[Rfam]
RNA: HNH endonuclease-associated RNA and ORF (HEARO) RNA
Organism: Ligilactobacillus equi
RNA sequence: GUCAACAGAACCCGUCAUUGAAAUAACGGGCUUGUAGUGAAAACUACUAGCUCCGUUGUUUUAAUGACGACCGGUUGAUUAGCUUAAGUAUUAAGUUACUACGUUACCGCUGAAAUUAGGUACUUUGGAACGCCACCCUAAUUCCAAACACUACGCUUAUGCUUCUAAACAGAGCUGCGGUUCACGGCUCAGUGGGUAUAAGAAUUAAAACCAGCGGAUAACAUUGGCGCAGGGUACACAC
Numbered sequence: 001g002u003c004a005a006c007a008g009a010a011c012c013c014g015u016c017a018u019u020g021a022a023a024u025a026a027c028g029g030g031c032u033u034g035u036a037g038u039g040a041a042a043a044c045u046a047c048u049a050g051c052u053c054c055g056u057u058g059u060u061u062u063a064a065u066g067a068c069g070a071c072c073g074g075u076u077g078a079u080u081a082g083c084u085u086a087a088g089u090a091u092u093a094a095g096u097u098a099c100u101a102c103g104u105u106a107c108c109g110c111u112g113a114a115a116u117u118a119g120g121u122a123c124u125u126u127g128g129a130a131c132g133c134c135a136c137c138c139u140a141a142u143u144c145c146a147a148a149c150a151c152u153a154c155g156c157u158u159a160u161g162c163u164u165c166u167a168a169a170c171a172g173a174g175c176u177g178c179g180g181u182u183c184a185c186g187g188c189u190c191a192g193u194g195g196g197u198a199u200a201a202g203a204a205u206u207a208a209a210a211c212c213a214g215c216g217g218a219u220a221a222c223a224u225u226g227g228c229g230c231a232g233g234g235u236a237c238a239c240a241c
Stems, first nucleotide, its partner, number of pairs: 001079006008072001012030002014027002017024002031050002034047005082228003086224001087100004103222004108216005120154002124148007135235005156202009169193002172190006